[Rfam]
RNA: mir-460 microRNA precursor family
Nucleotides: 076
Stems, first nucleotide, its partner, number of pairs: 012065002015062007024053001026051006
Number, partner (000 for none) and nucleotide at each position: 001000c002000u003000g004000u005000a006000u007000a008000g009000a010000a011000c012065c013064u014000g015062c016061a017060u018059u019058g020057u021056a022000c023000a024053c025000a026051c027050u028049g029048u030047g031046u032000g033000u034000c035000u036000c037000g038000c039000u040000c041000u042000c043000u044000g045000c046031a047030c048029a049028c050027a051026g052000c053024g054000c055000g056021u057020a058019c059018a060017a061016u062015g063000u064013g065012g066000a067000u068000a069000c070000u071000a072000u073000a074000g075000a076000a